About this RNA
Rfam assigns this 414-nucleotide RNA sequence from Streptomyces alkaliterrae to the family "Bacterial RNase P class A". The family's RNA type in Rfam is ribozyme.
[Rfam]
Nucleotides: 414
Base pairs, nucleotide, nucleotide: 001410002409003408004407006405007404008403009402010401011399012356013355014354015353016352017351018350020049021048023046024045025044027042028041029040030039031038054397055396056395058394059393060392061391062390063231064230065229066228070292071291072290073289075227076226077225078224079223080094081093082092083091084090095109096107097106098105099104110222111221115220116219117216118215119214132161133160134157135156136155137154138153139152141150142149169187170186171185172184173183174182189211190209191208192207193206194205195204196203197202235313236312237311238310272304273303274302275301276300277299284296285295286294287293320339321338322337323336324335325334326333327332
Number, partner (000 for none) and nucleotide at each position: 001410c002409g003408a004407g005000c006405c007404g008403c009402g010401c011399g012356g013355g014354c015353g016352g017351u018350c019000g020049c021048g022000u023046c024045g025044g026000u027042c028041c029040g030039g031038c032000g033000g034000c035000g036000a037000c038031g039030c040029c041028g042027g043000u044025c045024c046023g047000c048021c049020g050000a051000g052000g053000a054397a055396c056395g057000u058394c059393c060392g061391g062390a063231c064230u065229c066228c067000g068000c069000a070292g071291a072290g073289c074000a075227g076226g077225g078224u079223g080094g081093u082092a083091g084090g085000u086000a087000a088000c089000a090084c091083c092082u093081a094080c095109c096107u097106g098105g099104g100000g101000u102000g103000a104099c105098c106097c107096a108000c109095g110222g111221g112000a113000a114000a115220g116219u117216g118215c119214c120000a121000c122000a123000g124000a125000a126000a127000a128000c129000a130000g131000a132161c133160c134157g135156c136155c137154g138153g139152g140000a141150g142149c143000c144000g145000a146000c147000a148000g149142g150141c151000c152139c153138c154137c155136g156135g157134u158000a159000a160133g161132g162000g163000u164000g165000a166000a167000a168000c169187g170186g171185u172184g173183g174182u175000g176000u177000a178000a179000g180000a181000g182174a183173c184172c185171a186170c187169c188000a189211g190209c191208g192207c193206c194205c195204a196203g197202g198000g199000u200000g201000a202197c203196c204195u205194g206193g207192g208191c209190g210000g211189c212000u213000a214119g215118g216117u217000a218000a219116a220115c221111c222110c223079c224078a225077c226076c227075c228066g229065g230064a231063g232000c233000a234000a235313g236312g237311u238310c239000a240000a241000g242000a243000g244000g245000g246000c247000c248000g249000c250000g251000u252000c253000c254000g255000c256000g257000a258000g259000g260000a261000c262000g263000g264000c265000g266000g267000c268000c269000u270000g271000c272304g273303c274302g275301a276300a277299c278000g279000u280000c281000c282000g283000a284296g285295g286294g287293c288000u289073g290072c291071u292070c293287g294286c295285c296284c297000g298000a299277g300276u301275u302274c303273g304272c305000g306000g307000g308000u309000g310238g311237a312236c313235c314000g315000c316000a317000c318000g319000a320339g321338g322337c323336c324335g325334g326333u327332g328000g329000c330000g331000a332327c333326a334325c335324c336323g337322g338321u339320c340000c341000c342000a343000g344000a345000u346000g347000g348000a349000u350018g351017a352016c353015c354014g355013c356012c357000u358000c359000c360000c361000g362000g363000c364000g365000g366000g367000c368000c369000g370000c371000g372000a373000g374000g375000c376000c377000c378000c379000c380000g381000g382000a383000g384000a385000c386000a387000g388000a389000a390062u391061c392060c393059g394058g395056c396055g397054u398000a399011c400000a401010g402009c403008g404007c405006g406000a407004c408003u409002c410001g411000u412000c413000u414000g
Taxonomically the source falls in Streptomyces (Bacteria, Bacillati, Actinomycetes, Kitasatosporales).